RNA sequence: ACGUGUAGCAUGCCCGUUUGUGGAAUUACUCUGAUGUAUAUAUGCUAUGUUAUUGUUUUUGGGUAACGGGGUGUUACAAAAUG
Numbered sequence: 001a002c003g004u005g006u007a008g009c010a011u012g013c014c015c016g017u018u019u020g021u022g023g024a025a026u027u028a029c030u031c032u033g034a035u036g037u038a039u040a041u042a043u044g045c046u047a048u049g050u051u052a053u054u055g056u057u058u059u060u061g062g063g064u065a066a067c068g069g070g071g072u073g074u075u076a077c078a079a080a081a082u083g
Stems, first nucleotide, its partner, number of pairs: 002083002004078008013070006
This 83-nucleotide RNA sequence from Medicago truncatula belongs to the Rfam family "MIR2617 microRNA precursor family".
Rfam 15.1 lists 1,174 matches to the family in 2 species.